This 93-nucleotide sequence from Deinococcus cellulosilyticus belongs to the Rfam family "Guanidine-I riboswitch aptamer". On this family, see Barrick et al., Proc Natl Acad Sci U S A 2004: "New RNA motifs suggest an expanded scope for riboswitches in bacterial genetic control". Rfam describes the family as follows. This family represents a conserved RNA structure found upstream of the ykkC and yxkD genes in Bacillus subtilis and related genes in other bacteria. It scores 82 bits against the family's covariance model. The pairing is the family consensus, mapped onto this sequence.
RNA sequence: UUACAGGGAAACUAGGGUUCCGGCUAUUUAGCGACUGGACCGAGAGUUUCCGGCCCCUUGGGGGUUACACGGCGGGACAAAAGCCCGGGAGGA
Numbered sequence: 001u002u003a004c005a006g007g008g009a010a011a012c013u014a015g016g017g018u019u020c021c022g023g024c025u026a027u028u029u030a031g032c033g034a035c036u037g038g039a040c041c042g043a044g045a046g047u048u049u050c051c052g053g054c055c056c057c058u059u060g061g062g063g064g065u066u067a068c069a070c071g072g073c074g075g076g077a078c079a080a081a082a083g084c085c086c087g088g089g090a091g092g093a
Base pairs, nucleotide, nucleotide: 007051008050009049010048011047012046015041016040020038021037022035023032024031025030052066053065054064055063056062057061068088070091074086075085076084